[Rfam]
RNA sequence: GCCUCUGAUGAUGAUCUUAAAAUUACUUUCGUUCUUCCGAGAUGCCACAUGUGGAAAAUUUGUUGGAGACCUCAACUGAAGAGGC
Number, nucleotide and partner (000 for none) at each position: 001g000002c000003c083004u082005c081006u080007g000008a000009u000010g000011a000012u000013g000014a000015u000016c000017u000018u000019a000020a000021a000022a000023u000024u000025a000026c000027u000028u000029u000030c000031g000032u000033u000034c000035u000036u000037c000038c000039g000040a000041g000042a000043u000044g000045c000046c000047a000048c000049a000050u000051g000052u000053g000054g000055a000056a000057a000058a000059u000060u000061u000062g000063u000064u000065g000066g000067a000068g000069a000070c000071c000072u000073c000074a000075a000076c000077u000078g000079a000080a006081g005082a004083g003084g000085c000